[Rfam]
RNA sequence: AGAUAACUCCGAGUCCUAACGGUGAGGAUAGGAGUAACGGCUGUGUGGCACAGCCAUCGACAUACUUGUUCGACCGCGAGAGCGGGACGUUUCACACGAGAGAACAAGCCGUGUCGUAGACCAGCAAAUAUCCCACCUGCGGUACGGGAAGCCCCGGCGUUCACGCCGGGGA
Numbered sequence: 001a002g003a004u005a006a007c008u009c010c011g012a013g014u015c016c017u018a019a020c021g022g023u024g025a026g027g028a029u030a031g032g033a034g035u036a037a038c039g040g041c042u043g044u045g046u047g048g049c050a051c052a053g054c055c056a057u058c059g060a061c062a063u064a065c066u067u068g069u070u071c072g073a074c075c076g077c078g079a080g081a082g083c084g085g086g087a088c089g090u091u092u093c094a095c096a097c098g099a100g101a102g103a104a105c106a107a108g109c110c111g112u113g114u115c116g117u118a119g120a121c122c123a124g125c126a127a128a129u130a131u132c133c134c135a136c137c138u139g140c141g142g143u144a145c146g147g148g149a150a151g152c153c154c155c156g157g158c159g160u161u162c163a164c165g166c167c168g169g170g171g172a
Stems, first nucleotide, its partner, number of pairs: 004037001007034004013029005019023001039055005058116006065108007084097001086095001131149004136142002152171008

The record is a 172-nucleotide RNA sequence from Halohasta litchfieldiae, which matches "Sense overlapping transcript RNA 0042 (sot)" in Rfam. The family's RNA type in Rfam is small RNA. It scores 94 bits against the family's covariance model. NCBI's taxonomy places the organism under Archaea, Halobacteria, Halobacteriales, Haloferacaceae, Halohasta. The family's consensus secondary structure was predicted with RNAfold. Rfam describes the family as follows. It is associated with IS1341-type transposase (tnpB) genes, at the 3'-end in H. salinarum NRC-1. The tetraloop structural motif may be functional.